[Rfam]
RNA sequence: AUACUUACCUAGCGGGAGUUACCAUGAUCACGAAGGUGGUUUUCCCAAAAGGAGGCUCAUCCAUUGCACUCCAGAUGUGCUGAUGCCUGAAAUUUCCCCGAAUGUGGGAAACUCCACUGCAUAAUUUGUGGUGGUGGGGGGGGACUGCGUUCACGCUCUCCCUUG
Numbered sequence: 001a002u003a004c005u006u007a008c009c010u011a012g013c014g015g016g017a018g019u020u021a022c023c024a025u026g027a028u029c030a031c032g033a034a035g036g037u038g039g040u041u042u043u044c045c046c047a048a049a050a051g052g053a054g055g056c057u058c059a060u061c062c063a064u065u066g067c068a069c070u071c072c073a074g075a076u077g078u079g080c081u082g083a084u085g086c087c088u089g090a091a092a093u094u095u096c097c098c099c100g101a102a103u104g105u106g107g108g109a110a111a112c113u114c115c116a117c118u119g120c121a122u123a124a125u126u127u128g129u130g131g132u133g134g135u136g137g138g139g140g141g142g143g144a145c146u147g148c149g150u151u152c153a154c155g156c157u158c159u160c161c162c163u164u165g
Stems, first nucleotide, its partner, number of pairs: 012120002014046005021040005047088001052084001054081003058077004092113001093111003097107002136164005144159001147156003
Shown here is a 165-nucleotide sequence from Propithecus coquereli, a member of the family "U1 spliceosomal RNA". NCBI's taxonomy places the organism under Eukaryota, Metazoa, Tetrapoda, Amniota, Propithecus. On this family, see Pomeranz Krummel et al., Nature 2009: "Crystal structure of human spliceosomal U1 snRNP at 5.5 A resolution". About the family: U1 is a small nuclear RNA (snRNA) component of the spliceosome (involved in pre-mRNA splicing). Its 5' end forms complementary base pairs with the 5' splice junction, thus defining the 5' donor site of an intron. Rfam classes the family as a spliceosomal small nuclear RNA.